[Rfam]
The family of this 123-nucleotide RNA from Rhizobium sp. RU20A is "Alphaproteobacterial ar14". NCBI's taxonomy places the organism under Bacteria, Pseudomonadota, Hyphomicrobiales, Rhizobiaceae, Rhizobium. Rfam's curators write: Smr14C2 was renamed NfeR1 (Nodule Formation Efficiency RNA) highly expressed in salt stress and during the symbiotic interaction on legume roots. Rfam links the family to the GO term biological process involved in symbiotic interaction. The family has 118 seed sequences and 784 matches in Rfam 15.1.
RNA sequence: AAUCAUCGGCAAGCGCACUCCUCCUCCCAGCGCAGCCGACGGGACUGACAACGUUCCUCCUCCCAAGUUGUCAGUCGGAACAAACGACGCCUGCUGGACCUCCUCCCCCAGCAGGCGUUGUUC
Numbered sequence: 001a002a003u004c005a006u007c008g009g010c011a012a013g014c015g016c017a018c019u020c021c022u023c024c025u026c027c028c029a030g031c032g033c034a035g036c037c038g039a040c041g042g043g044a045c046u047g048a049c050a051a052c053g054u055u056c057c058u059c060c061u062c063c064c065a066a067g068u069u070g071u072c073a074g075u076c077g078g079a080a081c082a083a084a085c086g087a088c089g090c091c092u093g094c095u096g097g098a099c100c101u102c103c104u105c106c107c108c109c110a111g112c113a114g115g116c117g118u119u120g121u122u123c
Stems, first nucleotide, its partner, number of pairs: 007038004013033004043076010087118011